[Rfam]
RNA sequence: UCCACGCCAACUGGAGAGCGGUUGCCAGACAACCCACCGAAGGGGCAAGCAGCAGCUGCUGCACAAACUCUCAGGUAAAAGGACAGAGGGAGGGGC
Numbered sequence: 001u002c003c004a005c006g007c008c009a010a011c012u013g014g015a016g017a018g019c020g021g022u023u024g025c026c027a028g029a030c031a032a033c034c035c036a037c038c039g040a041a042g043g044g045g046c047a048a049g050c051a052g053c054a055g056c057u058g059c060u061g062c063a064c065a066a067a068c069u070c071u072c073a074g075g076u077a078a079a080a081g082g083a084c085a086g087a088g089g090g091a092g093g094g095g096c
Base pairs, nucleotide, nucleotide: 007090008089011086012085013084020034021033022032023031036076037075038074039072040071043070044069045068049064
Record summary:
The record is a 96-nucleotide RNA sequence from Lonsdalea quercina, which matches "Glycine riboswitch aptamer" in Rfam. The pairing is the family consensus, mapped onto this sequence. It scores 56 bits against the family's covariance model. Lineage of the source: Bacteria > Gammaproteobacteria > Enterobacterales > Pectobacteriaceae > Lonsdalea.